A member of the RNA family "Lysine riboswitch aptamer" from Clostridium frigidicarnis, 178 nucleotides long. For this family Rfam cites "Riboswitches Control Fundamental Biochemical Pathways in Bacillus subtilis and Other Bacteria" (Mandal et al., Cell, 2003).
RNA sequence: AACAUAAAUAGAGGCGCGAAUAAUUGGCGUAAUUAAGAAUUGUUAAGGAGAUGAACCUCCAAUAUUCUUAAUGAAUUAAUUAUUUGCCGAAAGGUAUAUUAUGUUCAUAUAAUGUAUCUUGGGAUUAAAGUACAAAAACUUUAUUCUUGCCAUAUUAAUAUGGAGAGCUAUUUAUGUA
Dot-bracket structure: .....((((((....(((((((((.......((((((((.........................))))))))......)))))))))...((((((((((((......))))))))))))((((.((((((......)))))).)))).(((((....)))))....)))))).....
Numbered sequence: 001a002a003c004a005u006a007a008a009u010a011g012a013g014g015c016g017c018g019a020a021u022a023a024u025u026g027g028c029g030u031a032a033u034u035a036a037g038a039a040u041u042g043u044u045a046a047g048g049a050g051a052u053g054a055a056c057c058u059c060c061a062a063u064a065u066u067c068u069u070a071a072u073g074a075a076u077u078a079a080u081u082a083u084u085u086g087c088c089g090a091a092a093g094g095u096a097u098a099u100u101a102u103g104u105u106c107a108u109a110u111a112a113u114g115u116a117u118c119u120u121g122g123g124a125u126u127a128a129a130g131u132a133c134a135a136a137a138a139c140u141u142u143a144u145u146c147u148u149g150c151c152a153u154a155u156u157a158a159u160a161u162g163g164a165g166a167g168c169u170a171u172u173u174a175u176g177u178a
Stems, first nucleotide, its partner, number of pairs: 006173006016087009032072008091120012121148004126143006150163005